[Rfam]
RNA sequence: GCGAGACAGGGGGGUCCGUGACCGGGCGCGACAGAUAAACUGUCCCAGGACGGUGCCGGGCGCAGCCCCCGAGCCCGUCCGCCCAUGAUCAGCCAGCAGCCGCUGCAACCCCAGGGAG
Number, nucleotide and partner (000 for none) at each position: 001g000002c000003g000004a000005g000006a000007c000008a000009g000010g000011g000012g000013g000014g000015u000016c000017c000018g000019u000020g000021a000022c000023c000024g000025g000026g000027c000028g000029c000030g000031a000032c000033a000034g000035a000036u000037a000038a000039a000040c000041u000042g000043u000044c000045c000046c000047a000048g080049g079050a078051c077052g076053g075054u000055g000056c073057c071058g070059g069060g068061c000062g000063c000064a000065g000066c000067c000068c060069c059070c058071g057072a000073g056074c000075c053076c052077g051078u050079c049080c048081g000082c000083c000084c000085a000086u000087g000088a000089u000090c000091a000092g000093c000094c105095a104096g103097c102098a000099g000100c000101c000102g097103c096104u095105g094106c000107a000108a000109c000110c000111c000112c000113a000114g000115g000116g000117a000118g000
The family of this 118-nucleotide RNA sequence from Streptomyces zinciresistens is "Streptomyces-metK RNA". It is one of the family's seed sequences. The source organism's lineage runs through Bacteria, Bacillati, Kitasatosporales, Streptomyces and Streptomyces zinciresistens. It is annotated as a small RNA.